This 215-nucleotide sequence from Melipona quadrifasciata belongs to the Rfam family "Small nucleolar RNA U3". Its family is annotated with RNA processing and nucleolus in the Gene Ontology. It is annotated as a C/D-box small nucleolar RNA. The base pairs follow the family's consensus structure, which is taken from published work. Rfam describes the family as follows. Small nucleolar RNAs (snoRNAs) are involved in the processing and modification of rRNA in the nucleolus. There are two main classes of snoRNAs: the box C/D class, and the box H/ACA class. The literature on the family includes a 1997 paper in Nucleic Acids Res by Zwieb, "The uRNA database".

RNA sequence: AAGAUCAUACUUCACAGGAUCAUUUCUGUAGUAUAUCUUACUCCGUUCUAAACCAACGGACAAAUUGAUGCAUCCACGAUGAGGAGAUAUAGCAUCUCUUCCUGAGCGUGAGGAAGACUUGUGGUGUUGACUUUGUUUCAAUGCCUCAGUCGUCGAUGAUCGUUCCUUUUUUGUACUCAGUACAAGAGAGUGGGAAAGGAUGCUUUCUGAGUGGU
Dot-bracket structure: (((((.(((((...(((((....))))).))))))))))...(((.(........))))..............((((..............((((((.(((((..(((.......((((...((((((((.......))))))))..)))).........)))..((.(((((((.....))))))).)).))))).)))))).......)))).